[Rfam]
RNA: c-di-GMP-I riboswitch aptamer
RNA sequence: CUUAUUUAUUUGCAAACAUGUCACAUGGUAAGGACGCAAAGCCACGGGUCUAAGGAUAGUACUACUACAAUCAGGAUAGCCGGGCUGCGGAA
Dot-bracket structure: ...........((...(.((((....)))).)...))..((((.((((((....(((............)))..)))..)))))))......